[Rfam]
RNA: Small Nucleolar RNA SNORD64
Organism: Octodon degus
RNA sequence: GGACUGAUGAUGAGCUAGGCGUGCUGAGCAUGAAUGAUGUGAGGCUCCACGGGAUUACUCUGAAGUCU
Numbered sequence: 001g002g003a004c005u006g007a008u009g010a011u012g013a014g015c016u017a018g019g020c021g022u023g024c025u026g027a028g029c030a031u032g033a034a035u036g037a038u039g040u041g042a043g044g045c046u047c048c049a050c051g052g053g054a055u056u057a058c059u060c061u062g063a064a065g066u067c068u
Stems, first nucleotide, its partner, number of pairs: 001068005012060003026047004